[Rfam]
RNA sequence: AGUACCUUUAAAUCAGUCCCGUGAGGCUGGCAAGGUAACGUGAAUAAUUGGAUAAGAAAGAGCUGUCUGGGCUGAAUCUCGCCAAGCUGUAAGCUGGUGGGUGUCUGCUCCUGUCUUUCCUGUCUUGAUUGUCAUAACUCCUUGCGAACUUCGCAAGGAGUUUUUUCGU
Numbered sequence: 001a002g003u004a005c006c007u008u009u010a011a012a013u014c015a016g017u018c019c020c021g022u023g024a025g026g027c028u029g030g031c032a033a034g035g036u037a038a039c040g041u042g043a044a045u046a047a048u049u050g051g052a053u054a055a056g057a058a059a060g061a062g063c064u065g066u067c068u069g070g071g072c073u074g075a076a077u078c079u080c081g082c083c084a085a086g087c088u089g090u091a092a093g094c095u096g097g098u099g100g101g102u103g104u105c106u107g108c109u110c111c112u113g114u115c116u117u118u119c120c121u122g123u124c125u126u127g128a129u130u131g132u133c134a135u136a137a138c139u140c141c142u143u144g145c146g147a148a149c150u151u152c153g154c155a156a157g158g159a160g161u162u163u164u165u166u167c168g169u
Stems, first nucleotide, its partner, number of pairs: 003037006013030006051124004056119006134164001136162012